[Rfam]
RNA: Small nucleolar RNA SNORA8
Organism: Chinchilla lanigera
RNA sequence: UACACUCUAUGGUAUCUGCCCUCAACAGUUAAUUCCUGCUGGUGCAUUCAAAAGACAGUGGGAUAAAAAUUCAGUAUCUGGCAUCAUUGGUUUUCUUGGCUUUGUGCCUGUUCAACCUGGUAUUUCUAUUGAUACUUUU
Numbered sequence: 001u002a003c004a005c006u007c008u009a010u011g012g013u014a015u016c017u018g019c020c021c022u023c024a025a026c027a028g029u030u031a032a033u034u035c036c037u038g039c040u041g042g043u044g045c046a047u048u049c050a051a052a053a054g055a056c057a058g059u060g061g062g063a064u065a066a067a068a069a070u071u072c073a074g075u076a077u078c079u080g081g082c083a084u085c086a087u088u089g090g091u092u093u094u095c096u097u098g099g100c101u102u103u104g105u106g107c108c109u110g111u112u113c114a115a116c117c118u119g120g121u122a123u124u125u126c127u128a129u130u131g132a133u134a135c136u137u138u139u
Stems, first nucleotide, its partner, number of pairs: 003060004015054001017052001018047001021044001023042001024040001026038003064128002067125004071120004080108005